[Rfam]
RNA sequence: AUCAGUUCUCAGGGCGGGGUGUAAUUCCCCACCGGCGGUUAUAGCCCGCGAGCGCCUUGCAUUGUAAAAUGCUUGGGUCAGCAGAUUUGGUGGAAUUCCAAAGCCGACGGUUAAAGUCCGGAUGGUAGAGAAUGGAA
Numbered sequence: 001a002u003c004a005g006u007u008c009u010c011a012g013g014g015c016g017g018g019g020u021g022u023a024a025u026u027c028c029c030c031a032c033c034g035g036c037g038g039u040u041a042u043a044g045c046c047c048g049c050g051a052g053c054g055c056c057u058u059g060c061a062u063u064g065u066a067a068a069a070u071g072c073u074u075g076g077g078u079c080a081g082c083a084g085a086u087u088u089g090g091u092g093g094a095a096u097u098c099c100a101a102a103g104c105c106g107a108c109g110g111u112u113a114a115a116g117u118c119c120g121g122a123u124g125g126u127a128g129a130g131a132a133u134g135g136a137a
Stems, first nucleotide, its partner, number of pairs: 003135001005133006017029003031117002033106002035049004044104002052082002086102005108120003

Shown here is a 137-nucleotide sequence from Pacificibacter marinus, a member of the family "FMN riboswitch aptamer (RFN element)".
A search with the family's covariance model found it, with a score of 118 bits.